The family of this 134-nucleotide RNA sequence from Butyrivibrio sp. YAB3001 is "Ribosomal protein L10 leader". For this family Rfam cites "Diverse mechanisms for regulating ribosomal protein synthesis in Escherichia coli" (Zengel and Lindahl, Prog Nucleic Acid Res Mol Biol, 1994). It is annotated as a cis-regulatory leader. From the family's description: This family is a putative r-protein leader autoregulatory structure found in B. subtilis and other low-GC Gram-positive bacteria. It is located in the 5' untranslated regions of mRNAs encoding ribosomal proteins L10 and L12 (rplJ-rplL). A Rho-independent transcription terminator structure that is probably involved in regulation is included at the 3' end. A search with the family's covariance model found it, with a score of 70 bits. Lineage of the source: Bacteria > Bacillati > Clostridia > Lachnospiraceae > Butyrivibrio.
[Rfam]
RNA sequence: AAAAUAAAAGACAAUGUGCCGAAGACAGCAGGUGUUCCUUUUGGAACAUAAUGUGCAAACGCCUGCCGAGGAAAAGUUUUAUCAAGACUUUUAUGCCUCUCGACGUCUUCGUUGAGAGGUUUUUUCGGCGGUUA
Number, nucleotide and partner (000 for none) at each position: 001a000002a000003a000004a000005u000006a000007a000008a000009a000010g000011a000012c000013a000014a000015u000016g000017u000018g000019c000020c000021g000022a000023a000024g000025a000026c000027a000028g066029c065030a064031g063032g062033u061034g047035u046036u045037c000038c000039u000040u000041u000042u000043g000044g000045a036046a035047c034048a000049u000050a000051a000052u000053g000054u000055g000056c000057a000058a000059a000060c000061g033062c032063c031064u030065g029066c028067c000068g000069a000070g000071g000072a000073a000074a000075a000076g000077u000078u000079u000080u000081a000082u000083c000084a000085a000086g000087a000088c000089u000090u000091u000092u000093a000094u000095g000096c119097c118098u117099c116100u115101c114102g113103a112104c111105g110106u000107c000108u000109u000110c105111g104112u103113u102114g101115a100116g099117a098118g097119g096120u000121u000122u000123u000124u000125u000126c000127g000128g000129c000130g000131g000132u000133u000134a000